[Rfam]
RNA: Small nucleolar RNA snoR8a
RNA sequence: GAGAUGGCGAUGAUUAUAAAAAUAAUUCCUCGUUCUGAUAUUUGCUCAUAUUGGGCAUGACAGACUUCUUAUUACACCCAUAGAAUCUGAGCUCUC
Numbered sequence: 001g002a003g004a005u006g007g008c009g010a011u012g013a014u015u016a017u018a019a020a021a022a023u024a025a026u027u028c029c030u031c032g033u034u035c036u037g038a039u040a041u042u043u044g045c046u047c048a049u050a051u052u053g054g055g056c057a058u059g060a061c062a063g064a065c066u067u068c069u070u071a072u073u074a075c076a077c078c079c080a081u082a083g084a085a086u087c088u089g090a091g092c093u094c095u096c
Stems, first nucleotide, its partner, number of pairs: 003096002006093002